Rfam assigns this 60-nucleotide RNA to the family "L2-Alphaproteobacteria ribosomal protein leader". Rfam classes the family as a cis-regulatory leader. The family's consensus secondary structure is taken from published work. Rfam's curators put it in the seed alignment.

RNA sequence: GGGGACCUUCGGGGCCCUACACCCGGGCCUUUGGGCCCCUGAACAGACGGAAGACAGAAA
Numbered sequence: 001g002g003g004g005a006c007c008u009u010c011g012g013g014g015c016c017c018u019a020c021a022c023c024c025g026g027g028c029c030u031u032u033g034g035g036c037c038c039c040u041g042a043a044c045a046g047a048c049g050g051a052a053g054a055c056a057g058a059a060a
Base pairs, nucleotide, nucleotide: 001018002017003016004015006014007013008012025038026037027036028035029034